Shown here is a 48-nucleotide sequence from Carnobacterium divergens, a member of the family "PreQ1 (pre queuosine) riboswitch aptamer". A reference for the family is Balaratnam et al. (2021), "A chemical probe based on the PreQ(1) metabolite enables transcriptome-wide mapping of binding sites", Nat Commun. Rfam links the family to the GO term queuosine biosynthetic process. This family is a bacterial riboswitch that binds to the metabolite preQ1, an intermediate in the biosynthesis of the modified nucleoside queuosine from GTP. One example of this riboswitch is located in the leader of the Bacillus subtilis ykvJKLM (queCDEF) operon which encodes four genes necessary for queuosine production. PreQ1 binding to the riboswitch aptamer is thought to induce premature transcription termination within the leader to down-regulate expression of these genes. The organism belongs to Carnobacterium divergens, within Bacteria.

[Rfam]
RNA sequence: AUAAACGUGGUUCAUUCAUACCAUCCCACGAAAAAAAACUAGGAGGAA
Dot-bracket structure: .....(((((....[..........)))))..........].......